[Rfam]
RNA sequence: CGUCACGGCGCCUGCAUUGUACACACUGUGCGGAGUGUGUGUGCACAGCGCAUACAAUGUGGAUGCUGUGGGA
Numbered sequence: 001c002g003u004c005a006c007g008g009c010g011c012c013u014g015c016a017u018u019g020u021a022c023a024c025a026c027u028g029u030g031c032g033g034a035g036u037g038u039g040u041g042u043g044c045a046c047a048g049c050g051c052a053u054a055c056a057a058u059g060u061g062g063a064u065g066c067u068g069u070g071g072g073a
Stems, first nucleotide, its partner, number of pairs: 012062002015059007024050001026048006